[Rfam]
RNA: small nucleolar RNA snoR134
Organism: Carnegiea gigantea
RNA sequence: UGGCACGAUGCACCCCGGGCUUCUCUGAAACUGAAAAAGGUGAAGAUGAACAAAGCCCCAACGCUCGUGCCAAAUUUAUGUGCCGUUCGUGUUGCAGUUUAGCCUUUUUGUACCUUCUUUUCUACUGGCUAAUCUGUGUCAAGUAAACGGCCAUAUCU
Dot-bracket structure: ..((((((.((.....((((((.((......................))..).)))))....))))))))...........((((((..((.(((((....(((......................)))....))))).))....)))))).......